[Rfam]
RNA: Small nucleolar RNA snoR53Y
Organism: Corchorus capsularis
RNA sequence: GUUCCCAAUGAUGGUUAGAAUUUUUAAAACCAUGCUAAUGCUGAUAAUUCAAUGAUUAAAUUCAUUUUAUAUAUUCUGAGGGAACC
Numbered sequence: 001g002u003u004c005c006c007a008a009u010g011a012u013g014g015u016u017a018g019a020a021u022u023u024u025u026a027a028a029a030c031c032a033u034g035c036u037a038a039u040g041c042u043g044a045u046a047a048u049u050c051a052a053u054g055a056u057u058a059a060a061u062u063c064a065u066u067u068u069a070u071a072u073a074u075u076c077u078g079a080g081g082g083a084a085c086c
Base pairs, nucleotide, nucleotide: 001085002084003083004082005081